[Rfam]
RNA sequence: GGGGCCGGUGGGCCACUGACCUCCCCAAAGAACCGGGGGAAAGAACUACCCGCCCGCCCACCCUCCCCGCCGGAAGGCCCGCGUCACCCGUGCGAGUGACUGGCUUGCAGGUGCGGGAAUCGGGCGGUUACGUUCGCCGCAGCAACCGCAGACACAUGCGGCCCCCGCCCGGGAUUCGCCGUCCCGGAACGAGGGCCUCACCGAUCAGGAAGCAGAACCUUCCCG
Numbered sequence: 001g002g003g004g005c006c007g008g009u010g011g012g013c014c015a016c017u018g019a020c021c022u023c024c025c026c027a028a029a030g031a032a033c034c035g036g037g038g039g040a041a042a043g044a045a046c047u048a049c050c051c052g053c054c055c056g057c058c059c060a061c062c063c064u065c066c067c068c069g070c071c072g073g074a075a076g077g078c079c080c081g082c083g084u085c086a087c088c089c090g091u092g093c094g095a096g097u098g099a100c101u102g103g104c105u106u107g108c109a110g111g112u113g114c115g116g117g118a119a120u121c122g123g124g125c126g127g128u129u130a131c132g133u134u135c136g137c138c139g140c141a142g143c144a145a146c147c148g149c150a151g152a153c154a155c156a157u158g159c160g161g162c163c164c165c166c167g168c169c170c171g172g173g174a175u176u177c178g179c180c181g182u183c184c185c186g187g188a189a190c191g192a193g194g195g196c197c198u199c200a201c202c203g204a205u206c207a208g209g210a211a212g213c214a215g216a217a218c219c220u221u222c223c224c225g
Base pairs, nucleotide, nucleotide: 001205004202007071008070009069010068011067012066084099085098086097087096089094113137114136115135116134160197161196162195163194164193166191167190171185172184173183174182208223209222210221211220212219
Dot-bracket structure: (..(..((((((.....................................................))))))............((((.(....).)))).............((((.................))))......................(((((.((...((((.......))))....)).)))))....)..)..(((((......)))))..